Shown here is a 124-nucleotide sequence from Rissa tridactyla, a member of the family "U4 spliceosomal RNA". Taxonomically the source falls in Rissa (Eukaryota, Metazoa, Craniata, Coelurosauria). Rfam 15.1 lists 32,178 matches to the family in 2,547 species. Clan: U4 clan. By type it is a spliceosomal small nuclear RNA. The literature on the family includes a 1997 paper in Nucleic Acids Res by Zwieb, "The uRNA database".
RNA sequence: GUUGCAGCGCAGUGGCAGUAUCGUAGCCAAUGAGGUUAAUCCAAGGCACGAUUUUUGCUAAUUGAAAACUAAUCUUAACUUUUAAAGAUAAUAUCUUCUGCCUUUUAGAUAAGUCUACUAGGAU
Numbered sequence: 001g002u003u004g005c006a007g008c009g010c011a012g013u014g015g016c017a018g019u020a021u022c023g024u025a026g027c028c029a030a031u032g033a034g035g036u037u038a039a040u041c042c043a044a045g046g047c048a049c050g051a052u053u054u055u056u057g058c059u060a061a062u063u064g065a066a067a068a069c070u071a072a073u074c075u076u077a078a079c080u081u082u083u084a085a086a087g088a089u090a091a092u093a094u095c096u097u098c099u100g101c102c103u104u105u106u107a108g109a110u111a112a113g114u115c116u117a118c119u120a121g122g123a124u
Stems, first nucleotide, its partner, number of pairs: 020052005026047003034042002083100002086096004113124004